Rfam assigns this 145-nucleotide RNA sequence from Nocardioides sp. Leaf285 to the family "SAM riboswitch aptamer (S box leader)".
Pairs were carried over by alignment from the consensus structure, which is taken from published work.
The organism belongs to Nocardioides, within Bacteria.
The SAM riboswitch is found upstream of a number of genes which code for proteins involved in methionine or cysteine biosynthesis in Gram-positive bacteria.
A search with the family's covariance model found it, with a score of 66 bits.

RNA sequence: AGCUCAUCCAGAGGGACUGAGGGAACGGCCCAGUGAAGUCCCGGCAACCGCCACGAGCCUCCGCCACCCGGCACAUCGGGGAAACGGACGUGGAGACGGUGCCAAUUCCGCCCGGCGCGAGAGUCGCAGCCGGGGAAGAUGAGAA
Dot-bracket structure: ..((((((....(((((...(((...[[)))......)))))((((.((................................................))))))...(]].((((((............))))))..)))))))..